[Rfam]
RNA sequence: GUUAGCUCGGGCCUCGAGGAGCCGCAGUCGGAGGAGGGGGAGGAGGAAGAGGAGAAGGAAGAGGAGCGGGGGCCCGGGUGGCUGCUCGGCGCUCAGAAGCCGGGCUCAUGGACGGGUGAGGCGGCUGUGUGCGCAGACAGUGCUCUAGCCGCGCGCGCGCCCCAGGCCCUGGCCCGGGCCUCAGCCCCGGGAGGAAGAGGAGCCCGCCAGGGCGCGGAGGAGAGCGGGCAGUCCCGCAGCCCGAGUCGGAGAGGGAGCGCGAGCCGCGCGGGCCCCGGCCGGGCCUCCGAAACCAUGAACUUUCUGCUC
Numbered sequence: 001g002u003u004a005g006c007u008c009g010g011g012c013c014u015c016g017a018g019g020a021g022c023c024g025c026a027g028u029c030g031g032a033g034g035a036g037g038g039g040g041a042g043g044a045g046g047a048a049g050a051g052g053a054g055a056a057g058g059a060a061g062a063g064g065a066g067c068g069g070g071g072g073c074c075c076g077g078g079u080g081g082c083u084g085c086u087c088g089g090c091g092c093u094c095a096g097a098a099g100c101c102g103g104g105c106u107c108a109u110g111g112a113c114g115g116g117u118g119a120g121g122c123g124g125c126u127g128u129g130u131g132c133g134c135a136g137a138c139a140g141u142g143c144u145c146u147a148g149c150c151g152c153g154c155g156c157g158c159g160c161c162c163c164a165g166g167c168c169c170u171g172g173c174c175c176g177g178g179c180c181u182c183a184g185c186c187c188c189g190g191g192a193g194g195a196a197g198a199g200g201a202g203c204c205c206g207c208c209a210g211g212g213c214g215c216g217g218a219g220g221a222g223a224g225c226g227g228g229c230a231g232u233c234c235c236g237c238a239g240c241c242c243g244a245g246u247c248g249g250a251g252a253g254g255g256a257g258c259g260c261g262a263g264c265c266g267c268g269c270g271g272g273c274c275c276c277g278g279c280c281g282g283g284c285c286u287c288c289g290a291a292a293c294c295a296u297g298a299a300c301u302u303u304c305u306g307c308u309c
Stems, first nucleotide, its partner, number of pairs: 002036002006033003010029003013024001048308002051305002054302002057294002061287004069276006078267004083263001089260006101243006109236003114163003118160001120158001121156003124152002127149001128147002131143004165233003172229005179220004184215001186212002189208002191205001193203001

The record is a 309-nucleotide RNA from Galemys pyrenaicus, which matches "Vascular endothelial growth factor (VEGF) IRES A" in Rfam.
A search with the family's covariance model found it, with a score of 264 bits.
The base pairs follow the family's consensus structure, which is taken from published work.
From the family's description: This family represents the vascular endothelial growth factor (VEGF) internal ribosome entry site (IRES) A. VEGF is an endothelial cell mitogen with many crucial functions such as embryogenic development and wound healing. The 5' UTR of VEGF mRNA contains two IRES elements which are able to promote efficient translation at the AUG start codon, this family represents IRES A.
NCBI's taxonomy places the organism under Eukaryota, Dipnotetrapodomorpha, Amniota, Laurasiatheria, Galemys.